c-di-GMP-I riboswitch aptamer: an 88-nucleotide sequence from Bacillus sp. PK3_68.
The source organism's lineage runs through Bacteria, Bacillati, Bacilli, Bacillaceae and Bacillus.
The family's consensus secondary structure is taken from published work.

RNA sequence: UUCAUUGAGGGGCAAACUCCAUGAAAAUGGGGGACGCAAAGCCACGGGCCUACAACAGUGAUUCUGUCAUGGCAGCCGGGUUGCCAAG
Numbered sequence: 001u002u003c004a005u006u007g008a009g010g011g012g013c014a015a016a017c018u019c020c021a022u023g024a025a026a027a028u029g030g031g032g033g034a035c036g037c038a039a040a041g042c043c044a045c046g047g048g049c050c051u052a053c054a055a056c057a058g059u060g061a062u063u064c065u066g067u068c069a070u071g072g073c074a075g076c077c078g079g080g081u082u083g084c085c086a087a088g
Base pairs, nucleotide, nucleotide: 012037013036017032018031019030020029021028022027040082041081042080043079045078046077047076048073049072050071055067056066057065058064